Shown here is an 84-nucleotide sequence from Macaca nemestrina, a member of the family "mir-548 microRNA precursor family". Lineage of the source: Eukaryota > Mammalia > Primates > Cercopithecidae > Macaca. A search with the family's covariance model found it, with a score of 94 bits.
RNA sequence: UGUUAGGUUAGUGCAAAAGUAAUCGCGGCUUUUUCCAUUACUUUUAAUGGAAAAAGCCGCGAUUACUUUUGCACCAACCUAAUA
Numbered sequence: 001u002g003u004u005a006g007g008u009u010a011g012u013g014c015a016a017a018a019g020u021a022a023u024c025g026c027g028g029c030u031u032u033u034u035c036c037a038u039u040a041c042u043u044u045u046a047a048u049g050g051a052a053a054a055a056g057c058c059g060c061g062a063u064u065a066c067u068u069u070u071g072c073a074c075c076a077a078c079c080u081a082a083u084a
Stems, first nucleotide, its partner, number of pairs: 001084009011074030